[Rfam]
RNA: Group II catalytic intron D1-D4-1
Organism: Robinsoniella sp. RHS
RNA sequence: UAACCAUCGUCGAAAGGCGGUGCUGAACGUACAGAAGUCAGCAGAGGCCAUAGUAGCCGAGAGGUAAAGGGC
Numbered sequence: 001u002a003a004c005c006a007u008c009g010u011c012g013a014a015a016g017g018c019g020g021u022g023c024u025g026a027a028c029g030u031a032c033a034g035a036a037g038u039c040a041g042c043a044g045a046g047g048c049c050a051u052a053g054u055a056g057c058c059g060a061g062a063g064g065u066a067a068a069g070g071g072c
Base pairs, nucleotide, nucleotide: 001025002024005022006021007020008019009018010017011016038045039044047072048071049070056065057064058063